RNA sequence: CCAACGGCCCUCUUUAGGGCCACAAAUAUUCACGAAUACUUAUUG
Numbered sequence: 001c002c003a004a005c006g007g008c009c010c011u012c013u014u015u016a017g018g019g020c021c022a023c024a025a026a027u028a029u030u031c032a033c034g035a036a037u038a039c040u041u042a043u044u045g
Stems, first nucleotide, its partner, number of pairs: 006021006